[Rfam]
RNA: Pseudomonas sRNA P36
RNA sequence: AAAACUGUUACCUCAUGACGAGGCCGUAACAGAAACCGGGGCUUACGGUAACGAAAUCCCG
Numbered sequence: 001a002a003a004a005c006u007g008u009u010a011c012c013u014c015a016u017g018a019c020g021a022g023g024c025c026g027u028a029a030c031a032g033a034a035a036c037c038g039g040g041g042c043u044u045a046c047g048g049u050a051a052c053g054a055a056a057u058c059c060c061g
Stems, first nucleotide, its partner, number of pairs: 005032007037061005043055001046053002